[Rfam]
RNA sequence: AUACAUCUAGAUCCAUACCCCUAAACUCCCUAGAUGAAGGAUAGCUCUUAUAUGGGCUAUCCUCUUUUU
Numbered sequence: 001a002u003a004c005a006u007c008u009a010g011a012u013c014c015a016u017a018c019c020c021c022u023a024a025a026c027u028c029c030c031u032a033g034a035u036g037a038a039g040g041a042u043a044g045c046u047c048u049u050a051u052a053u054g055g056g057c058u059a060u061c062c063u064c065u066u067u068u069u
Base pairs, nucleotide, nucleotide: 004036005035006034007033008032009031039062040061041060042059043058044057045056046055047054
Rfam assigns this 69-nucleotide RNA sequence from Bacillus sp. SG-1 to the family "Listeria sRNA sbrA". NCBI's taxonomy places the organism under Bacteria, Bacillati, Bacillota, Caryophanales, Bacillus. The literature on the family includes a 2009 paper in Nature by Toledo-Arana et al., "The Listeria transcriptional landscape from saprophytism to virulence".